[Rfam]
RNA sequence: GCGGAAGGCCGGAUGACCGCGGGCGGCAACGUCCGAGGAAAGUCCGGACUCCAGAAAGUAGCGGUGCCGGGUAACGCCCGGGCGGGGAAACCCGACGGAAAGCGCCACAGAAAACAAACUACCCGUGCCUGCACGGGAAAAGGUGAAACGGUGGGGUAAGAGCCCACCGCCGGGCUGGCAACAGCGCGGGCAAGGCAAGCCCCACCGGGAGCAAUGCCGAAUAGGGACCGACGCGCCAAGGGUCGCAAGAUCCAAGGCAGGGCUGCUUUCGCCCGAAGUCAGGUCCGGGUUGGCAGCUAGAGGGCCUGUAGCAAUACAGGACCAAGAGGAAUGGUCAUCACCCUUCGGGGGACAGAAUCCGGCUUAUAGGCCUUCCGCGCAU
Numbered sequence: 001g002c003g004g005a006a007g008g009c010c011g012g013a014u015g016a017c018c019g020c021g022g023g024c025g026g027c028a029a030c031g032u033c034c035g036a037g038g039a040a041a042g043u044c045c046g047g048a049c050u051c052c053a054g055a056a057a058g059u060a061g062c063g064g065u066g067c068c069g070g071g072u073a074a075c076g077c078c079c080g081g082g083c084g085g086g087g088a089a090a091c092c093c094g095a096c097g098g099a100a101a102g103c104g105c106c107a108c109a110g111a112a113a114a115c116a117a118a119c120u121a122c123c124c125g126u127g128c129c130u131g132c133a134c135g136g137g138a139a140a141a142g143g144u145g146a147a148a149c150g151g152u153g154g155g156g157u158a159a160g161a162g163c164c165c166a167c168c169g170c171c172g173g174g175c176u177g178g179c180a181a182c183a184g185c186g187c188g189g190g191c192a193a194g195g196c197a198a199g200c201c202c203c204a205c206c207g208g209g210a211g212c213a214a215u216g217c218c219g220a221a222u223a224g225g226g227a228c229c230g231a232c233g234c235g236c237c238a239a240g241g242g243u244c245g246c247a248a249g250a251u252c253c254a255a256g257g258c259a260g261g262g263c264u265g266c267u268u269u270c271g272c273c274c275g276a277a278g279u280c281a282g283g284u285c286c287g288g289g290u291u292g293g294c295a296g297c298u299a300g301a302g303g304g305c306c307u308g309u310a311g312c313a314a315u316a317c318a319g320g321a322c323c324a325a326g327a328g329g330a331a332u333g334g335u336c337a338u339c340a341c342c343c344u345u346c347g348g349g350g351g352a353c354a355g356a357a358u359c360c361g362g363c364u365u366a367u368a369g370g371c372c373u374u375c376c377g378c379g380c381a382u
Stems, first nucleotide, its partner, number of pairs: 001378010011367001012339007020035006040365003044362005049211004058273001062207005067081005082096001083094004097202002102200002104196003119142002122137006150168006169191001170189003174185004215295004225286005265279005303322001305320006